RNA sequence: GCGUAGUGAUGAUAAAAUACAAAUAAUCCGAUAGUAAUUGUAUGAUGGGAUAAAACACCUCCUACUCAUUCUGA
Number, nucleotide and partner (000 for none) at each position: 001g000002c000003g000004u000005a000006g069007u068008g067009a066010u000011g000012a000013u000014a000015a000016a000017a000018u000019a000020c000021a000022a000023a000024u000025a000026a000027u050028c049029c000030g000031a000032u000033a000034g000035u000036a000037a000038u000039u000040g000041u000042a000043u000044g000045a000046u000047g000048g000049g028050a027051u000052a000053a000054a000055a000056c000057a000058c000059c000060u000061c000062c000063u000064a000065c000066u009067c008068a007069u006070u000071c000072u000073g000074a000
This 74-nucleotide sequence from Kingdonia uniflora belongs to the Rfam family "Small nucleolar RNA Z105". The organism belongs to Kingdonia, within Eukaryota. Pairs were carried over by alignment from the consensus structure, which was predicted with CMfinder.